[Rfam]
RNA sequence: AUGAAUCUUCAGGGCAGGGUGCAAUUCCCGAUCGGCGGUAUAGUCCGCGAGCGCGUUAGCGUAGGAUUUGGUGCAAUUCCAAAACCGACAGUAUAGUCUGGAUAAAAGAAGAGGAAA
Numbered sequence: 001a002u003g004a005a006u007c008u009u010c011a012g013g014g015c016a017g018g019g020u021g022c023a024a025u026u027c028c029c030g031a032u033c034g035g036c037g038g039u040a041u042a043g044u045c046c047g048c049g050a051g052c053g054c055g056u057u058a059g060c061g062u063a064g065g066a067u068u069u070g071g072u073g074c075a076a077u078u079c080c081a082a083a084a085c086c087g088a089c090a091g092u093a094u095a096g097u098c099u100g101g102a103u104a105a106a107a108g109a110a111g112a113g114g115a116a117a
Base pairs, nucleotide, nucleotide: 006112007111008110009109010108017029018028019027031097032096033087034086035048036047037046038045043085044084067083068082069081070080071079089100090099091098
A member of the RNA family "FMN riboswitch aptamer (RFN element)" from Megasphaera sp. UPII 135-E, 117 nucleotides long. The base pairs follow the family's consensus structure, which is taken from published work.